[Rfam]
RNA: tRNA
Organism: Litorimonas cladophorae
RNA sequence: GGGCGAUUAGCUCAGUGGGAGAGCACUACAUUCACACUGUAGGGGUCACUGGUUCAAUCCCAGUAUCGCCCA
Numbered sequence: 001g002g003g004c005g006a007u008u009a010g011c012u013c014a015g016u017g018g019g020a021g022a023g024c025a026c027u028a029c030a031u032u033c034a035c036a037c038u039g040u041a042g043g044g045g046u047c048a049c050u051g052g053u054u055c056a057a058u059c060c061c062a063g064u065a066u067c068g069c070c071c072a
Stems, first nucleotide, its partner, number of pairs: 001071007010024004026042005048064005